[Rfam]
RNA sequence: AGCCUCAUUCUAGAUGAAAAUGGGCACUAGGCACUGUUCUUCAUAGUGUCCAGAAAUAAUUAAUGUGGCUAUAUUGAGACACAGGUUAUGCUUCCAUCACAGUAAGUUUAUUGCAGUGAUGACAAUGAGACCUGUAACAUUC
Numbered sequence: 001a002g003c004c005u006c007a008u009u010c011u012a013g014a015u016g017a018a019a020a021u022g023g024g025c026a027c028u029a030g031g032c033a034c035u036g037u038u039c040u041u042c043a044u045a046g047u048g049u050c051c052a053g054a055a056a057u058a059a060u061u062a063a064u065g066u067g068g069c070u071a072u073a074u075u076g077a078g079a080c081a082c083a084g085g086u087u088a089u090g091c092u093u094c095c096a097u098c099a100c101a102g103u104a105a106g107u108u109u110a111u112u113g114c115a116g117u118g119a120u121g122a123c124a125a126u127g128a129g130a131c132c133u134g135u136a137a138c139a140u141u142c
Stems, first nucleotide, its partner, number of pairs: 002069003006065003021052009081135005095121006
Source information
The family of this 142-nucleotide RNA sequence from Rousettus aegyptiacus is "Small nucleolar RNA SNORA1". The source organism's lineage runs through Eukaryota, Deuterostomia, Dipnotetrapodomorpha, Theria and Rousettus. It is annotated as an H/ACA-box small nucleolar RNA. Rfam links the family to the GO terms RNA processing and nucleolus. A search with the family's covariance model found it, with a score of 142 bits. ACA1 is a member of the H/ACA class of snoRNA that guide the sites of modification of uridines to pseudouridines.